About this RNA:
mir-9195 microRNA precursor family: an 87-nucleotide RNA from Myotis brandtii. Lineage of the source: Eukaryota > Euteleostomi > Sarcopterygii > Laurasiatheria > Myotis.

Nucleotides: 087
Stems, first nucleotide, its partner, number of pairs: 004084003013073005020067002023064011038049004
Number, partner (000 for none) and nucleotide at each position: 001000a002000g003000c004084g005083g006082c007000c008000c009000u010000c011000c012000a013073c014072a015071g016070c017069c018000a019000g020067g021066g022000c023064g024063g025062a026061a027060u028059g029058c030057u031056u032055g033054c034000c035000u036000c037000a038049u039048c040047g041046c042000u043000g044000u045000g046041g047040c048039g049038a050000c051000a052000a053000a054033g055032c056031a057030a058029g059028c060027a061026u062025u063024c064023c065000a066021c067020c068000a069017g070016g071015c072014u073013g074000c075000u076000c077000a078000u079000g080000c081000u082006g083005c084004c085000a086000a087000c

A search with the family's covariance model found it, with a score of 91 bits. Rfam links the family to the GO terms RISC complex and miRNA-mediated post-transcriptional gene silencing.